SAM riboswitch aptamer (S box leader): a 108-nucleotide RNA sequence from Bacillus oleivorans.
Pairs were carried over by alignment from the consensus structure, which is taken from published work.
Taxonomically the source falls in Bacillus (Bacteria, Bacillota, Caryophanales, Bacillaceae).
It scores 94 bits against the family's covariance model.
RNA sequence: UUCUUAUCAAGAGAGAUCGAGGGACAGGCCCGAUGAAAUCUCGGCAGCGGAUUUAAUUAGAAUACCGUGCCAAUUCCUGCAAAUGUUACGGCAUUUGGAAGAUGAGAA
Numbered sequence: 001u002u003c004u005u006a007u008c009a010a011g012a013g014a015g016a017u018c019g020a021g022g023g024a025c026a027g028g029c030c031c032g033a034u035g036a037a038a039u040c041u042c043g044g045c046a047g048c049g050g051a052u053u054u055a056a057u058u059a060g061a062a063u064a065c066c067g068u069g070c071c072a073a074u075u076c077c078u079g080c081a082a083a084u085g086u087u088a089c090g091g092c093a094u095u096u097g098g099a100a101g102a103u104g105a106g107a108a
Base pairs, nucleotide, nucleotide: 001108002107003106004105005104006103007102008101013042014041015040016039017038021031022030023029025079026078027077028076043071044070045069046068048067049066051063052062053061075100080097081096082095083094084093085092
Dot-bracket structure: ((((((((....(((((...(((.[[[[)))......)))))((((.((.(((.......)))..))))))...(]]]]((((((......))))))..)))))))))